[Rfam]
RNA sequence: UGCAUCCACUAGGGGGGCCUUUAGAUAGGCUGAGAUCAAAGUGUGCCUUUGAGACCCUUAGAACCUGAUCUGGGUGAUACCAGCGUAGGGAAGUGGAAAAAUACAUUC
Dot-bracket structure: .....(((((((((..((((......))))......(((((.....)))))...)))).....((((..((((......))))..))))..)))))............
RNA: TPP riboswitch aptamer (THI element)
Organism: Anoxybacteroides amylolyticum